FMN riboswitch aptamer (RFN element): a 208-nucleotide RNA sequence from Streptococcus sp. DD13. The base pairs follow the family's consensus structure, which is taken from published work. The literature on the family includes a 2002 paper in Proc Natl Acad Sci U S A by Winkler et al., "An mRNA structure that controls gene expression by binding FMN".

[Rfam]
RNA sequence: AAGGGUCUUCAGGGCAGGGUGAAAUUCCCGACCGGCGGUGACAAGAGAGCUUGGUUUUGAGAUGAAGUGCAUCUUCAGUAGAUCGAAGGAUCGAUGCAGAAAAAGAUUGCAGGUUUCUAAAAAUUCAGGCUGUUUGAAGUCCGCGAGCGAAAGCUGAUGAGGUGAGAAUCCUCGACCGACAGUAUAGUCUGGAUGGGAGAAGACAAGG
Number, nucleotide and partner (000 for none) at each position: 001a000002a000003g000004g000005g204006u203007c202008u201009u200010c199011a000012g000013g000014g000015c000016a000017g029018g028019g027020u000021g000022a000023a000024a000025u000026u000027c019028c018029c017030g000031a188032c187033c178034g177035g144036c143037g142038g141039u000040g000041a000042c000043a000044a000045g000046a000047g000048a000049g000050c000051u000052u000053g000054g000055u000056u000057u000058u000059g000060a000061g000062a000063u000064g000065a000066a000067g000068u000069g000070c000071a000072u000073c000074u000075u000076c000077a000078g000079u000080a000081g000082a000083u000084c000085g000086a000087a000088g000089g000090a000091u000092c000093g000094a000095u000096g000097c000098a000099g000100a000101a000102a000103a000104a000105g000106a000107u000108u000109g000110c000111a000112g000113g000114u000115u000116u000117c000118u000119a000120a000121a000122a000123a000124u000125u000126c000127a000128g000129g000130c000131u000132g000133u000134u000135u000136g000137a000138a000139g000140u000141c038142c037143g036144c035145g000146a000147g154148c153149g000150a000151a000152a000153g148154c147155u000156g000157a000158u174159g173160a172161g171162g170163u000164g000165a000166g000167a000168a000169u000170c162171c161172u160173c159174g158175a000176c000177c034178g033179a000180c191181a190182g189183u000184a000185u000186a000187g032188u031189c182190u181191g180192g000193a000194u000195g000196g000197g000198a000199g010200a009201a008202g007203a006204c005205a000206a000207g000208g000